[Rfam]
RNA sequence: GUCAGAGGCUGGGUCUUUGCGGGCAAGGUGAUUUGUCUUGAUGUUUUUCAACUGGCCUACAAAGUCCCAGUUUCUGGC
Numbered sequence: 001g002u003c004a005g006a007g008g009c010u011g012g013g014u015c016u017u018u019g020c021g022g023g024c025a026a027g028g029u030g031a032u033u034u035g036u037c038u039u040g041a042u043g044u045u046u047u048u049c050a051a052c053u054g055g056c057c058u059a060c061a062a063a064g065u066c067c068c069a070g071u072u073u074c075u076g077g078c
Stems, first nucleotide, its partner, number of pairs: 003076006010069004015064005021058004026053002029050002
Shown here is a 78-nucleotide sequence from Albula goreensis, a member of the family "mir-193 microRNA precursor family". A search with the family's covariance model found it, with a score of 74 bits.